[Rfam]
Nucleotides: 196
Base pairs, nucleotide, nucleotide: 014047015046016045017044023039024038025037026036167196168195169194170193171192172191173190174189175188176187177186178185179184
Number, partner (000 for none) and nucleotide at each position: 001000g002000g003000u004000u005000a006000a007000c008000g009000g010000a011000g012000g013000a014047g015046g016045c017044a018000g019000a020000c021000a022000u023039g024038g025037g026036a027000c028000u029000g030000a031000c032000a033000c034000a035000a036026u037025c038024c039023u040000u041000u042000a043000a044017u045016g046015u047014c048000c049000u050000a051000u052000u053000g054000a055000u056000c057000a058000g059000u060000g061000c062000u063000g064000c065000g066000u067000u068000c069000g070000u071000g072000u073000u074000c075000g076000u077000u078000g079000c080000g081000g082000c083000c084000a085000u086000g087000c088000u089000c090000u091000u092000c093000a094000u095000c096000u097000g098000a099000a100000g101000g102000c103000a104000g105000g106000c107000u108000u109000u110000g111000g112000c113000g114000a115000a116000c117000u118000c119000a120000a121000a122000g123000a124000c125000a126000g127000g128000a129000a130000a131000u132000g133000c134000g135000a136000c137000u138000c139000c140000u141000a142000g143000a144000a145000g146000c147000u148000a149000a150000c151000a152000g153000a154000c155000a156000g157000u158000c159000a160000a161000u162000u163000c164000g165000a166000a167196g168195a169194a170193g171192c172191g173190c174189a175188u176187g177186c178185c179184u180000u181000a182000g183000c184179g185178g186177g187176u188175a189174u190173g191172c192171g193170u194169u195168u196167u

The family of this 196-nucleotide RNA sequence from Arminella tubonensis is "Rhizobiales sRNA Atu_C9". It is annotated as a small RNA.